Notes
Rfam assigns this 60-nucleotide RNA sequence from Pseudoduganella namucuonensis to the family "Betaproteobacteria toxic small RNA". Rfam describes the family as follows. Overexpression in amino aid rich medium attenuates growth, suggesting role in repressing amino acid intake and metabolism. The organism belongs to Pseudoduganella, within Bacteria. The match comes from Rfam's covariance-model search (62 bits).
RNA sequence: UGUCUCCUCCAACUCUCAAUGAAUUGGAUUCAGCCCGCUCCUUGUAGCGGGCUUUUUUUU
Numbered sequence: 001u002g003u004c005u006c007c008u009c010c011a012a013c014u015c016u017c018a019a020u021g022a023a024u025u026g027g028a029u030u031c032a033g034c035c036c037g038c039u040c041c042u043u044g045u046a047g048c049g050g051g052c053u054u055u056u057u058u059u060u
Base pairs, nucleotide, nucleotide: 008028009027010026011025012024014022015021032053033052034051035050036049037048038047039046